[Rfam]
RNA sequence: AGCUGUUUGUGAUGUAAAACAAAGAACAAUGGGAAUCUCCCUGAAUUUGAUUGAGGACACCAUGGCACUGAAACAGCA
Numbered sequence: 001a002g003c004u005g006u007u008u009g010u011g012a013u014g015u016a017a018a019a020c021a022a023a024g025a026a027c028a029a030u031g032g033g034a035a036u037c038u039c040c041c042u043g044a045a046u047u048u049g050a051u052u053g054a055g056g057a058c059a060c061c062a063u064g065g066c067a068c069u070g071a072a073a074c075a076g077c078a
Base pairs, nucleotide, nucleotide: 002077003076004075005074006073007072
The family of this 78-nucleotide RNA from Astyanax mexicanus is "Small nucleolar RNA SNORD79". The literature on the family includes a 2002 paper in Mol Cell Biol by Galardi et al., "Purified box C/D snoRNPs are able to reproduce site-specific 2'-O-methylation of target RNA in vitro". Gene Ontology terms of the family: RNA processing and nucleolus. A search with the family's covariance model found it, with a score of 54 bits. About the family: snoRNA U79 or Z22 is found in intron 7 of the gas5 gene in humans and is also present in mice. NCBI's taxonomy places the organism under Eukaryota, Chordata, Gnathostomata, Characoidei, Astyanax.